[Rfam]
RNA: Trypanosomatid snoRNA TB10Cs4H4
Organism: Trypanosoma cruzi
RNA sequence: GAGGAGAUCCGUAGCCACGGUGCCUUGCCUACUUCGUGGCGCACUGUGGGUGGUGAUUUUCCGAGA
Numbered sequence: 001g002a003g004g005a006g007a008u009c010c011g012u013a014g015c016c017a018c019g020g021u022g023c024c025u026u027g028c029c030u031a032c033u034u035c036g037u038g039g040c041g042c043a044c045u046g047u048g049g050g051u052g053g054u055g056a057u058u059u060u061c062c063g064a065g066a
Base pairs, nucleotide, nucleotide: 003062004061005060006058007057008056009055015049016048017047018046019045020044021043023041027040028039029038